RNA: U7 small nuclear RNA
RNA sequence: UAUUGCUACAGCUCUUUUAGAAUUUGUCUAGCAAGUUUUCCAGUUUUUACUAGAAAACUCCC
Numbered sequence: 001u002a003u004u005g006c007u008a009c010a011g012c013u014c015u016u017u018u019a020g021a022a023u024u025u026g027u028c029u030a031g032c033a034a035g036u037u038u039u040c041c042a043g044u045u046u047u048u049a050c051u052a053g054a055a056a057a058c059u060c061c062c
Stems, first nucleotide, its partner, number of pairs: 034059007042051003